[Rfam]
A member of the RNA family "Guanidine-I riboswitch aptamer" from Symbiobacterium thermophilum, 114 nucleotides long. The sequence is in the family's curated seed alignment. For this family Rfam cites "An uncommon [K(+)(Mg(2+))2] metal ion triad imparts stability and selectivity to the Guanidine-I riboswitch" (Trachman RJ 3rd and Ferre-D'Amare, RNA, 2021).
RNA sequence: GAUCAGGUUUUCUAGGGUUCCGCGGCGUCACGGCGCCGGUCCGGUCCGAGAGAAAACGCACAACCGGCGGGAGAGCGCCGGCUGUGUACACGGCGGGACAAAAGCCCGGGAGGA
Numbered sequence: 001g002a003u004c005a006g007g008u009u010u011u012c013u014a015g016g017g018u019u020c021c022g023c024g025g026c027g028u029c030a031c032g033g034c035g036c037c038g039g040u041c042c043g044g045u046c047c048g049a050g051a052g053a054a055a056a057c058g059c060a061c062a063a064c065c066g067g068c069g070g071g072a073g074a075g076c077g078c079c080g081g082c083u084g085u086g087u088a089c090a091c092g093g094c095g096g097g098a099c100a101a102a103a104g105c106c107c108g109g110g111a112g113g114a
Base pairs, nucleotide, nucleotide: 007057008056009055010054011053012052015047016046020044021043022041023038024037025036026035027034028033058087059086060085061084062083064081065080066079067078068077069076089109091112095107096106097105